The record is a 272-nucleotide RNA from Nannospalax galili, which matches "Mason-Pfizer monkey virus packaging signal" in Rfam.
This family represents a group of sequences that are related to the Mason-Pfizer monkey virus (MPMV) packaging signal.
Its family is annotated with viral genome packaging in the Gene Ontology.
It is annotated as a cis-regulatory element.
The family's consensus secondary structure was predicted with PFOLD.
[Rfam]
RNA sequence: UGGCGCCCAACAUGGGGCCUGGAUACUGGGGACAGCGUGAGGGACACGACGGAGGAAAAAGGGGUGCACACCCGCUCAAAUAAUUCGGAGAUGCCGCGGGAGCCUGCCGCAACCCAGCCAAAGGUAAGUUGGUCGUUCAAUCAUGGGGCAAGAAUUAAGCCAGCAUCAGAUUUAUGUGAUACAGUUAAGAGAAGCUCUUCAGGCAAGAGGAUUAAAGGUUAAAACUGAGGAUUUAUUUAAUUUCUUUGAUUUUGUAAAGGACAUUUGUCCCU
Numbered sequence: 001u002g003g004c005g006c007c008c009a010a011c012a013u014g015g016g017g018c019c020u021g022g023a024u025a026c027u028g029g030g031g032a033c034a035g036c037g038u039g040a041g042g043g044a045c046a047c048g049a050c051g052g053a054g055g056a057a058a059a060a061g062g063g064g065u066g067c068a069c070a071c072c073c074g075c076u077c078a079a080a081u082a083a084u085u086c087g088g089a090g091a092u093g094c095c096g097c098g099g100g101a102g103c104c105u106g107c108c109g110c111a112a113c114c115c116a117g118c119c120a121a122a123g124g125u126a127a128g129u130u131g132g133u134c135g136u137u138c139a140a141u142c143a144u145g146g147g148g149c150a151a152g153a154a155u156u157a158a159g160c161c162a163g164c165a166u167c168a169g170a171u172u173u174a175u176g177u178g179a180u181a182c183a184g185u186u187a188a189g190a191g192a193a194g195c196u197c198u199u200c201a202g203g204c205a206a207g208a209g210g211a212u213u214a215a216a217g218g219u220u221a222a223a224a225c226u227g228a229g230g231a232u233u234u235a236u237u238u239a240a241u242u243u244c245u246u247u248g249a250u251u252u253u254g255u256a257a258a259g260g261a262c263a264u265u266u267g268u269c270c271c272u
Stems, first nucleotide, its partner, number of pairs: 006031003013025002036048003084123002087119002093114001096110004129151003134148001136147004157198001159195002207247005216234005257272001259270004